The record is a 58-nucleotide RNA from Corynebacterium sp. HMSC04H06, which matches "msiK RNA" in Rfam. The family's consensus secondary structure is taken from published work. The source organism's lineage runs through Bacteria, Bacillati, Actinomycetes, Mycobacteriales and Corynebacterium. A search with the family's covariance model found it, with a score of 54 bits. By type it is a cis-regulatory element.

RNA sequence: AGAAGUUAUUUUCCACUCGGAUCGUUCGGCACGUACCUGCCGAUGGAGGAGACACCAU
Numbered sequence: 001a002g003a004a005g006u007u008a009u010u011u012u013c014c015a016c017u018c019g020g021a022u023c024g025u026u027c028g029g030c031a032c033g034u035a036c037c038u039g040c041c042g043a044u045g046g047a048g049g050a051g052a053c054a055c056c057a058u
Stems, first nucleotide, its partner, number of pairs: 009050007026043006